[Rfam]
RNA sequence: UUUCUCCAUCUAGCGCCAGACCUUUUAUUAAAAGGUUGACGAGGAAAAGAGUGAUCGAAAAUUCGGCGGAUGCUCUUUCGCAGCUCUCUCAUGCGAGAUAUACCGGCAAAUAUGCGGGUAACUGCAAAACAAAUACGGUAUAAGGGAGAAUG
Numbered sequence: 001u002u003u004c005u006c007c008a009u010c011u012a013g014c015g016c017c018a019g020a021c022c023u024u025u026u027a028u029u030a031a032a033a034g035g036u037u038g039a040c041g042a043g044g045a046a047a048a049g050a051g052u053g054a055u056c057g058a059a060a061a062u063u064c065g066g067c068g069g070a071u072g073c074u075c076u077u078u079c080g081c082a083g084c085u086c087u088c089u090c091a092u093g094c095g096a097g098a099u100a101u102a103c104c105g106g107c108a109a110a111u112a113u114g115c116g117g118g119u120a121a122c123u124g125c126a127a128a129a130c131a132a133a134u135a136c137g138g139u140a141u142a143a144g145g146g147a148g149a150a151u152g
Stems, first nucleotide, its partner, number of pairs: 020036007046078005055066004079095004083090001099142007113126005
glmS glucosamine-6-phosphate activated ribozyme aptamer: a 152-nucleotide RNA sequence from Firmicutes bacterium CAG:534. Rfam describes the family as follows. This entry contains a glucosamine-6-phosphate activated ribozyme that is found in the mRNA for GlmS. GlmS is an enzyme that uses fructose-6-phosphate and glutamine to generate glucosamine-6-phosphate. The ribozyme catalyses self cleavage of the glmS mRNA that is thought to regulate GlmS activity. It is annotated as a riboswitch. A search with the family's covariance model found it, with a score of 79 bits. Rfam links the family to the GO terms regulation of gene expression and catalytic activity. The source organism's lineage runs through Bacteria, Bacillati and Bacillota.